[Rfam]
RNA sequence: GAAGCAAUGAUGAGGUGAAGCACUGAAACAGUGUUGAAAGGGUAGUGGACAGGUACCCAGUUGAUAACUGAGGGCUUGCCGUGAACUCUAUCUAAUUAAACGACUUCUCCUUCCACUGAGCUCC
Numbered sequence: 001g002a003a004g005c006a007a008u009g010a011u012g013a014g015g016u017g018a019a020g021c022a023c024u025g026a027a028a029c030a031g032u033g034u035u036g037a038a039a040g041g042g043u044a045g046u047g048g049a050c051a052g053g054u055a056c057c058c059a060g061u062u063g064a065u066a067a068c069u070g071a072g073g074g075c076u077u078g079c080c081g082u083g084a085a086c087u088c089u090a091u092c093u094a095a096u097u098a099a100a101c102g103a104c105u106u107c108u109c110c111u112u113c114c115a116c117u118g119a120g121c122u123c124c
Base pairs, nucleotide, nucleotide: 001124003122004121005120
A member of the RNA family "Small nucleolar RNA Z152/R70/R12/" from Ricinus communis, 124 nucleotides long. The family has 9 seed sequences and 604 matches in Rfam 15.1. Lineage of the source: Eukaryota > Magnoliopsida > fabids > Acalyphoideae > Ricinus. On this family, see Barneche et al., J Mol Biol 2001: "Identification of 66 box C/D snoRNAs in Arabidopsis thaliana: extensive gene duplications generated multiple isoforms predicting new ribosomal RNA 2'-O-methylation sites". The family's consensus secondary structure was predicted with PFOLD. It is annotated as a C/D-box small nucleolar RNA. Its family is annotated with RNA processing and nucleolus in the Gene Ontology.